Lysine riboswitch aptamer: a 172-nucleotide RNA sequence from Melghirimyces profundicolus. Pairs were carried over by alignment from the consensus structure, which is taken from published work.
RNA sequence: CCUGUGAGUAGAGGCGCGGAACGCAUCAGUACCGUCCCGGAGAAAGGCAUCGAUGAUCGGACGGAAAAGGGUGUUUCGCCGAAGUGCGGUCGGUUGCCGAACCCCCGCACUGGCCGGUCCGCUGAACAAGGGGCCGGUUGCCGCGGACGUUUCGCGGAGCGCUACCGUGGGG
Numbered sequence: 001c002c003u004g005u006g007a008g009u010a011g012a013g014g015c016g017c018g019g020a021a022c023g024c025a026u027c028a029g030u031a032c033c034g035u036c037c038c039g040g041a042g043a044a045a046g047g048c049a050u051c052g053a054u055g056a057u058c059g060g061a062c063g064g065a066a067a068a069g070g071g072u073g074u075u076u077c078g079c080c081g082a083a084g085u086g087c088g089g090u091c092g093g094u095u096g097c098c099g100a101a102c103c104c105c106c107g108c109a110c111u112g113g114c115c116g117g118u119c120c121g122c123u124g125a126a127c128a129a130g131g132g133g134c135c136g137g138u139u140g141c142c143g144c145g146g147a148c149g150u151u152u153c154g155c156g157g158a159g160c161g162c163u164a165c166c167g168u169g170g171g172g
Base pairs, nucleotide, nucleotide: 008165009164010163011162016079017078018077019076020075021074022073023072024071032064033063034062035061036060037059039057083111084110085109086108087107088106089105092102094100112139113138114137115136116135117134118133119132120131141157142156143155144154145153146152147151
Annotation
Taxonomically the source falls in Melghirimyces (Bacteria, Bacillota, Bacilli, Thermoactinomycetaceae). Riboswitches are metabolite binding domains within certain messenger RNAs that serve as precision sensors for their corresponding targets.